[Rfam]
permuted transfer-messenger RNA: a 244-nucleotide RNA sequence from Candidatus Liberibacter africanus. From the family's description: Bacterial tmRNA, also known as 10Sa RNA or SsrA, is named for its dual tRNA and mRNA-like properties. Its role is to liberate the mRNA from a stalled ribosome. To accomplish this part of the tmRNA is used as a reading frame that ends in a translation stop signal. The broken mRNA is replaced in the ribosome by the tmRNA and translation of the tmRNA leads to addition of a proteolysis tag to the incomplete protein enabling recognition by a protease. Recently a number of permuted tmRNA genes have been found encoded in two parts. tmRNAs have been identified in eubacteria and some chloroplasts but are absent from archaeal and eukaryote nuclear genomes. It is one of the family's seed sequences.
RNA sequence: GACGAUAAAUAGUCAACGAAAUAAACUUAUUGGACCCGGGGGCGGUACCCGGCGCCUCCACCAUUAGAGACGCAUUAAUCAUUAUGACGGUAUAUGAUUCAUAAUGAAUGAUUGAGGGGGCGAAAUAGGAUAGACAAAAGCAUAAAGGUUGGGUGUUCGUUCGGUAUGGUACCACCGUUAUCGGGCUAAAAAUGUAGUUGCAAAUGACAACCACAGUAGAGUAAAUCUCGCUGCCGCUUCUUAG
Numbered sequence: 001g002a003c004g005a006u007a008a009a010u011a012g013u014c015a016a017c018g019a020a021a022u023a024a025a026c027u028u029a030u031u032g033g034a035c036c037c038g039g040g041g042g043c044g045g046u047a048c049c050c051g052g053c054g055c056c057u058c059c060a061c062c063a064u065u066a067g068a069g070a071c072g073c074a075u076u077a078a079u080c081a082u083u084a085u086g087a088c089g090g091u092a093u094a095u096g097a098u099u100c101a102u103a104a105u106g107a108a109u110g111a112u113u114g115a116g117g118g119g120g121c122g123a124a125a126u127a128g129g130a131u132a133g134a135c136a137a138a139a140g141c142a143u144a145a146a147g148g149u150u151g152g153g154u155g156u157u158c159g160u161u162c163g164g165u166a167u168g169g170u171a172c173c174a175c176c177g178u179u180a181u182c183g184g185g186c187u188a189a190a191a192a193u194g195u196a197g198u199u200g201c202a203a204a205u206g207a208c209a210a211c212c213a214c215a216g217u218a219g220a221g222u223a224a225a226u227c228u229c230g231c232u233g234c235c236g237c238u239u240c241u242u243a244g
Stems, first nucleotide, its partner, number of pairs: 001161005014151004026140003030137003036052005053122007162177004